MIR162_1 microRNA precursor family: a 107-nucleotide RNA from Camellia sinensis. The family's consensus secondary structure was predicted with RNAalifold. The organism belongs to Camellia, within Eukaryota. Rfam links the family to the GO terms RISC complex and miRNA-mediated post-transcriptional gene silencing.
RNA sequence: GUUCAGGUCACUGGACGCAGCGGUUCAUCGAUCUGUUCCCUGAACUGGUUGUGUUCUCCAAAUUUACAGGAAUCGGUCGAUAAACCUCUGCAUCCAGCGUUCACCAC
Numbered sequence: 001g002u003u004c005a006g007g008u009c010a011c012u013g014g015a016c017g018c019a020g021c022g023g024u025u026c027a028u029c030g031a032u033c034u035g036u037u038c039c040c041u042g043a044a045c046u047g048g049u050u051g052u053g054u055u056c057u058c059c060a061a062a063u064u065u066a067c068a069g070g071a072a073u074c075g076g077u078c079g080a081u082a083a084a085c086c087u088c089u090g091c092a093u094c095c096a097g098c099g100u101u102c103a104c105c106a107c
Stems, first nucleotide, its partner, number of pairs: 013095003018090003022086004027081007036072003